[Rfam]
RNA sequence: GCCGGUCCUCGGUAGUGGCCCCCGGAGCGCGACGCGCGGCCGGGGGCUUCGAUCGAAGACCGGC
Numbered sequence: 001g002c003c004g005g006u007c008c009u010c011g012g013u014a015g016u017g018g019c020c021c022c023c024g025g026a027g028c029g030c031g032a033c034g035c036g037c038g039g040c041c042g043g044g045g046g047c048u049u050c051g052a053u054c055g056a057a058g059a060c061c062g063g064c
Base pairs, nucleotide, nucleotide: 001064002063003062004061005060006059007058009056010055011054012053013052017048018047019046020045021044022043023042024041025040028038029037030036
This 64-nucleotide RNA belongs to the Rfam family "Actino-pnp RNA". Pairs were carried over by alignment from the consensus structure, which is taken from published work. Rfam classes the family as a cis-regulatory element. It scores 72 bits against the family's covariance model.